[Rfam]
RNA sequence: GUGUUCGAGUAAUCGCUGUGUGUAACAGCACAGAGGAAAGUCCAUGCUCACACAGUCUGAGAUGACUGUAGUGUUCGUGCCUGACGAAAUCAUAAGUCAGGGUAGCCUGUAAGGCUAACGGCAGAAGGAACGCCUAAGUCUGUGAAGAUAUGGCGGACACUUCUUGAAAGUGCCACAGUGACGGAGCUUUUUUGGAAACAAAAAAGGUGGAACGAGGUAAACCCCGCGAGUGAGAAACCCAAAAUUAGGUAGGGGCACUUCUGCAAAGGAAAUGAACGGAGCAGAAGGCGGAUUAUUAUCCGCAGACAGAUGAUUACUGCUUUCGUACGAGGGUGACUCCCGUAUGCAGUACGGAGUAACAGAACAUGGCUUACGGAG
Numbered sequence: 001g002u003g004u005u006c007g008a009g010u011a012a013u014c015g016c017u018g019u020g021u022g023u024a025a026c027a028g029c030a031c032a033g034a035g036g037a038a039a040g041u042c043c044a045u046g047c048u049c050a051c052a053c054a055g056u057c058u059g060a061g062a063u064g065a066c067u068g069u070a071g072u073g074u075u076c077g078u079g080c081c082u083g084a085c086g087a088a089a090u091c092a093u094a095a096g097u098c099a100g101g102g103u104a105g106c107c108u109g110u111a112a113g114g115c116u117a118a119c120g121g122c123a124g125a126a127g128g129a130a131c132g133c134c135u136a137a138g139u140c141u142g143u144g145a146a147g148a149u150a151u152g153g154c155g156g157a158c159a160c161u162u163c164u165u166g167a168a169a170g171u172g173c174c175a176c177a178g179u180g181a182c183g184g185a186g187c188u189u190u191u192u193u194g195g196a197a198a199c200a201a202a203a204a205a206g207g208u209g210g211a212a213c214g215a216g217g218u219a220a221a222c223c224c225c226g227c228g229a230g231u232g233a234g235a236a237a238c239c240c241a242a243a244a245u246u247a248g249g250u251a252g253g254g255g256c257a258c259u260u261c262u263g264c265a266a267a268g269g270a271a272a273u274g275a276a277c278g279g280a281g282c283a284g285a286a287g288g289c290g291g292a293u294u295a296u297u298a299u300c301c302g303c304a305g306a307c308a309g310a311u312g313a314u315u316a317c318u319g320c321u322u323u324c325g326u327a328c329g330a331g332g333g334u335g336a337c338u339c340c341c342g343u344a345u346g347c348a349g350u351a352c353g354g355a356g357u358a359a360c361a362g363a364a365c366a367u368g369g370c371u372u373a374c375g376g377a378g
Base pairs, nucleotide, nucleotide: 004378005377006376007374008318009317010316011315012314013313014312016033017032018031019030020029021028038372039371040370042369043368044367045366046365047234048233049232050231051230052069053068054067055066056065057064075229076228077227078226079225080101081100082099083098084097085096102119103117104116105115106114107113108112120224121223123164124163125162126161131155132154133153134152138149139148140147170222171221172218173217174216187206188205189204190203191202192201193200194199238254239253240252258287259286260285261284262283263282264281288303289302290301291300292299293298321356322355323354324353325352326351327350328349

This 378-nucleotide RNA sequence from Alkalicoccus daliensis belongs to the Rfam family "Bacterial RNase P class B". Pairs were carried over by alignment from the consensus structure, which is taken from published work. Gene Ontology terms of the family: tRNA processing, dimeric ribonuclease P complex and ribonuclease P activity. Rfam classes the family as a ribozyme. About the family: Ribonuclease P (RNase P) is a ubiquitous endoribonuclease, found in archaea, bacteria and eukarya as well as chloroplasts and mitochondria. Its best characterised activity is the generation of mature 5'-ends of tRNAs by cleaving the 5'-leader elements of precursor-tRNAs. Cellular RNase Ps are ribonucleoproteins. The match comes from Rfam's covariance-model search (339 bits).